[Rfam]
This 118-nucleotide RNA sequence from Treponema pedis belongs to the Rfam family "TD-1 RNA".
The literature on the family includes a 2007 paper in Nucleic Acids Res by Weinberg et al., "Identification of 22 candidate structured RNAs in bacteria using the CMfinder comparative genomics pipeline".
The match comes from Rfam's covariance-model search (73 bits).
The family is grouped with related families in Rfam's "TD (Treponema denticola) motifs".
RNA sequence: GCUUAUCUGACAAGUUUGCUUUUGAGCGGGCAUCGGUUAUUGUAUUGCAGUUUGUAAAUAAACCGCUUGAAAAAUAUUUUUCGGGAUUUAAUAAUCCCUCCAAAAAGUUUUUAUAGGA
Numbered sequence: 001g002c003u004u005a006u007c008u009g010a011c012a013a014g015u016u017u018g019c020u021u022u023u024g025a026g027c028g029g030g031c032a033u034c035g036g037u038u039a040u041u042g043u044a045u046u047g048c049a050g051u052u053u054g055u056a057a058a059u060a061a062a063c064c065g066c067u068u069g070a071a072a073a074a075u076a077u078u079u080u081u082c083g084g085g086a087u088u089u090a091a092u093a094a095u096c097c098c099u100c101c102a103a104a105a106a107g108u109u110u111u112u113a114u115a116g117g118a
Stems, first nucleotide, its partner, number of pairs: 013033001014031007047066002050063005070112006077105004083098006
Dot-bracket structure: ............((((((((....))))))).).............((.(((((....))))).))...((((((.((((..((((((....))))))...)))).))))))......